[Rfam]
RNA sequence: CUUCAUGCACAUCCUCGCGACUAAUGACAGGUCUCAUUCCUUUAAGCACUCUCAUUAGCCGCGCGAACCUCUGUAACCGAAGAGCCUUACCCAAAAAUCAUCAUUAGCAUUCUUAUGCUGCUACAUAUGAUGAUUUCUCAGAAGAAAAGGGGCCAUAUAUGGCCCCUUUC
Number, nucleotide and partner (000 for none) at each position: 001c082002u081003u080004c079005a000006u000007g077008c000009a074010c073011a072012u000013c000014c000015u000016c065017g064018c063019g062020a000021c058022u057023a056024a055025u054026g053027a052028c000029a000030g000031g000032u000033c000034u000035c000036a000037u000038u000039c000040c000041u000042u000043u000044a000045a000046g000047c000048a000049c000050u000051c000052u027053c026054a025055u024056u023057a022058g021059c000060c000061g000062c019063g018064c017065g016066a000067a000068c000069c000070u000071c000072u011073g010074u009075a000076a000077c007078c000079g004080a003081a002082g001083a000084g000085c000086c000087u000088u123089a122090c000091c000092c000093a000094a000095a000096a000097a000098u000099c000100a000101u000102c000103a000104u000105u000106a000107g000108c000109a000110u000111u000112c000113u000114u000115a000116u000117g000118c000119u000120g000121c000122u089123a088124c000125a000126u000127a000128u000129g000130a000131u000132g000133a000134u000135u000136u000137c000138u000139c000140a000141g000142a000143a000144g000145a000146a000147a000148a000149g165150g164151g163152g000153c161154c000155a000156u000157a000158u000159a000160u000161g153162g000163c151164c150165c149166c000167u000168u000169u000170c000
The record is a 170-nucleotide sequence from Photorhabdus luminescens, which matches "SraG RNA" in Rfam. This RNA was discovered in E. coli during a large scale screen. Evidence was found for specific cleavage of this RNA. Taxonomically the source falls in Photorhabdus (Bacteria, Pseudomonadati, Enterobacterales, Morganellaceae). The sequence is in the family's curated seed alignment. Rfam classes the family as a small RNA.